[Rfam]
RNA sequence: UUGAAUAGAUUAUUGCCUUCAUAAGGCAUUGGCUGGUGAUUUUUUAAUCGCCGGCCU
Numbered sequence: 001u002u003g004a005a006u007a008g009a010u011u012a013u014u015g016c017c018u019u020c021a022u023a024a025g026g027c028a029u030u031g032g033c034u035g036g037u038g039a040u041u042u043u044u045u046a047a048u049c050g051c052c053g054g055c056c057u
Stems, first nucleotide, its partner, number of pairs: 014028004031056010
The record is a 57-nucleotide RNA sequence from Moritella sp. Urea-trap-13, which matches "Pseudomonas sRNA P26" in Rfam. A reference for the family is Livny et al. (2006), "Identification of 17 Pseudomonas aeruginosa sRNAs and prediction of sRNA-encoding genes in 10 diverse pathogens using the bioinformatic tool sRNAPredict2", Nucleic Acids Res. This small RNA (sRNA) was computationally identified in the genome of the opportunistic pathogen Pseudomonas aeruginosa and its expression verified by northern blot analysis. P26 is conserved across many Gammaproteobacteria species and appears to be consistently located between the DNA directed RNA polymerase (beta subunit) and 50S ribosomal protein L7/L12 genes. Taxonomically the source falls in Moritella (Bacteria, Pseudomonadati, Alteromonadales, Moritellaceae).